[Rfam]
RNA sequence: UGUGAGAGUGAUAAAUUGCACUCUGUCGUGGCACUGGUUGCAGUGGCACAGGUGUCUCGUCCUGCACUUCGCUGGGGACACACCAUGUGCACAGGGGCCAUCUGACUCACC
Numbered sequence: 001u002g003u004g005a006g007a008g009u010g011a012u013a014a015a016u017u018g019c020a021c022u023c024u025g026u027c028g029u030g031g032c033a034c035u036g037g038u039u040g041c042a043g044u045g046g047c048a049c050a051g052g053u054g055u056c057u058c059g060u061c062c063u064g065c066a067c068u069u070c071g072c073u074g075g076g077g078a079c080a081c082a083c084c085a086u087g088u089g090c091a092c093a094g095g096g097g098c099c100a101u102c103u104g105a106c107u108c109a110c111c
Stems, first nucleotide, its partner, number of pairs: 004110001006108003023064001025062001027059002031055003037049001039048003

The family of this 111-nucleotide RNA sequence from Hucho hucho is "Small nucleolar RNA SNORD67". The literature on the family includes a 2001 paper in EMBO J by Huttenhofer et al., "RNomics: an experimental approach that identifies 201 candidates for novel, small, non-messenger RNAs in mouse". NCBI's taxonomy places the organism under Eukaryota, Metazoa, Eumetazoa, Vertebrata, Hucho.